[Rfam]
Nucleotides: 098
Base pairs, nucleotide, nucleotide: 001098002097003096004095005094006093007092008091013041015040016039017038021031022030023029025075026074027073028072042067043066044065045064047063048062049060050059051058052057071090076087077086078085079084
Number, partner (000 for none) and nucleotide at each position: 001098c002097u003096c004095u005094u006093a007092u008091c009000c010000a011000g012000a013041g014000a015040g016039g017038u018000g019000g020000a021031g022030g023029g024000a025075u026074u027073g028072g029023c030022c031021c032000g033000a034000u035000g036000a037000a038017g039016c040015c041013c042067a043066g044065c045064a046000a047063c048062c049060u050059g051058u052057g053000a054000a055000a056000u057052u058051a059050c060049a061000a062048g063047g064045u065044g066043c067042u068000a069000a070000u071090u072028c073027c074026a075025a076087c077086g078085g079084u080000a081000u082000u083000u084079a085078c086077c087076g088000a089000g090071a091008g092007a093006u094005g095004a096003g097002a098001g